[Rfam]
RNA sequence: GGGGUCGUAUUGGUUUUGACAGCGUAGAUCUUUGAAAGUAUAAGCAUGUCGUGCGUUGGAUAAUUAGCACGUAAAUCUGAAUAUUCAACACUCAAAUGGCAAUACUCAGUAUGCCAUGGCUGCCUAAUCAGUGAUUAGAUAGUCAUUAGGGCCGCCGGGCCGGUUGGUCUGUUACCACGCCCCGCCGCCGACUUAAAAACAAAUACAGAUUGCUGCUACCGAAGGCUGUGCCGGUGGCUUAAGACCAUUCAGCUACGGAUCAGGUUGGUUUGUUGGUUUCCUGCCUGUUCCCGACAAUUAAUAAUCAAAUAAGCAUGUAGAAAGCUUUUGAAGGAUAUGUUUGGACAGGGGUUCGAGUCCCCUCGACUCCACGA
Numbered sequence: 001g002g003g004g005u006c007g008u009a010u011u012g013g014u015u016u017u018g019a020c021a022g023c024g025u026a027g028a029u030c031u032u033u034g035a036a037a038g039u040a041u042a043a044g045c046a047u048g049u050c051g052u053g054c055g056u057u058g059g060a061u062a063a064u065u066a067g068c069a070c071g072u073a074a075a076u077c078u079g080a081a082u083a084u085u086c087a088a089c090a091c092u093c094a095a096a097u098g099g100c101a102a103u104a105c106u107c108a109g110u111a112u113g114c115c116a117u118g119g120c121u122g123c124c125u126a127a128u129c130a131g132u133g134a135u136u137a138g139a140u141a142g143u144c145a146u147u148a149g150g151g152c153c154g155c156c157g158g159g160c161c162g163g164u165u166g167g168u169c170u171g172u173u174a175c176c177a178c179g180c181c182c183c184g185c186c187g188c189c190g191a192c193u194u195a196a197a198a199a200c201a202a203a204u205a206c207a208g209a210u211u212g213c214u215g216c217u218a219c220c221g222a223a224g225g226c227u228g229u230g231c232c233g234g235u236g237g238c239u240u241a242a243g244a245c246c247a248u249u250c251a252g253c254u255a256c257g258g259a260u261c262a263g264g265u266u267g268g269u270u271u272g273u274u275g276g277u278u279u280c281c282u283g284c285c286u287g288u289u290c291c292c293g294a295c296a297a298u299u300a301a302u303a304a305u306c307a308a309a310u311a312a313g314c315a316u317g318u319a320g321a322a323a324g325c326u327u328u329u330g331a332a333g334g335a336u337a338u339g340u341u342u343g344g345a346c347a348g349g350g351g352u353u354c355g356a357g358u359c360c361c362c363u364c365g366a367c368u369c370c371a372c373g374a
Base pairs, nucleotide, nucleotide: 001370002369003368004367005366006365007364020343021342022340023339024338025337026336031333032332033331035329036328037327038326041323045317046316047315048314049313050071051070052069053068054067057087058086059085060084061083062082116135117134119132120131121130151192153190154189156184157183158182159181162176163175164174168208173203215238216237217236218235219234220233221232224254225253226252227251228250257291258290259289261287262286263285264284265283267281268280273308274307275306277303347363348362349361350360351359